The record is a 142-nucleotide RNA sequence from Oryza sativa, which matches "small nucleolar RNA snoR135" in Rfam. The family's RNA type in Rfam is H/ACA-box small nucleolar RNA. The source organism's lineage runs through Eukaryota, Magnoliopsida, Oryzinae, Oryza and Oryza sativa. The family has 6 seed sequences and 837 matches in Rfam 15.1.
RNA sequence: CCUGCAGGAUAGUGUGUAUCGGCCUAAUGCCUUAUGCUAUGCAUUUUUUGCCGAAAGUGUUUCCUGCUAUAUCAAUUAGAGGAAAGUGGGCAGUUGGGUUAAGCUUAUUCUGUUUUCUCCAACAAUCAUUUUCCUCUCAUUA
Numbered sequence: 001c002c003u004g005c006a007g008g009a010u011a012g013u014g015u016g017u018a019u020c021g022g023c024c025u026a027a028u029g030c031c032u033u034a035u036g037c038u039a040u041g042c043a044u045u046u047u048u049u050g051c052c053g054a055a056a057g058u059g060u061u062u063c064c065u066g067c068u069a070u071a072u073c074a075a076u077u078a079g080a081g082g083a084a085a086g087u088g089g090g091c092a093g094u095u096g097g098g099u100u101a102a103g104c105u106u107a108u109u110c111u112g113u114u115u116u117c118u119c120c121a122a123c124a125a126u127c128a129u130u131u132u133c134c135u136c137u138c139a140u141u142a
Base pairs, nucleotide, nucleotide: 004067005066006065007064008063009061014044015043016042017041018040019039079136080135081134082133083132084131085130086129087128088127089126093123094122095121096120